[Rfam]
This 91-nucleotide RNA sequence from Medicago truncatula belongs to the Rfam family "MIR2617 microRNA precursor family".
It scores 50 bits against the family's covariance model.
The family's consensus secondary structure was predicted with RNAalifold.
RNA sequence: ACGUAAUGUGACAUGCCCGUUGGGGUUUUACUCUGAUUUUGUUGAAAUAUAAUAUUUUAUAUGAUUUUGGGAAACGGGGUGUUACAUUGGU
Numbered sequence: 001a002c003g004u005a006a007u008g009u010g011a012c013a014u015g016c017c018c019g020u021u022g023g024g025g026u027u028u029u030a031c032u033c034u035g036a037u038u039u040u041g042u043u044g045a046a047a048u049a050u051a052a053u054a055u056u057u058u059a060u061a062u063g064a065u066u067u068u069g070g071g072a073a074a075c076g077g078g079g080u081g082u083u084a085c086a087u088u089g090g091u
Base pairs, nucleotide, nucleotide: 004089005088006087007086008085009084010083011082012081013080014079016078017077018076019075020074021073